The family of this 92-nucleotide RNA from Sinorhizobium alkalisoli is "Selenocysteine transfer RNA". The match comes from Rfam's covariance-model search (74 bits). The family's consensus secondary structure is taken from published work.
[Rfam]
RNA sequence: GGAGGAGAUUCAUGCCCGGUGGCAUGUCCGGACUUCAAAUCCGGGAGGGGCCGAGAGACGGUCCUUGGUGGGUUCGACCCCCACUCUCUUCC
Numbered sequence: 001g002g003a004g005g006a007g008a009u010u011c012a013u014g015c016c017c018g019g020u021g022g023c024a025u026g027u028c029c030g031g032a033c034u035u036c037a038a039a040u041c042c043g044g045g046a047g048g049g050g051c052c053g054a055g056a057g058a059c060g061g062u063c064c065u066u067g068g069u070g071g072g073u074u075c076g077a078c079c080c081c082c083a084c085u086c087u088c089u090u091c092c
Stems, first nucleotide, its partner, number of pairs: 001092008011026006027045006047065005069083004

Source information: The organism belongs to Sinorhizobium, within Bacteria. A reference for the family is Lowe and Eddy (1997), "tRNAscan-SE: a program for improved detection of transfer RNA genes in genomic sequence", Nucleic Acids Res.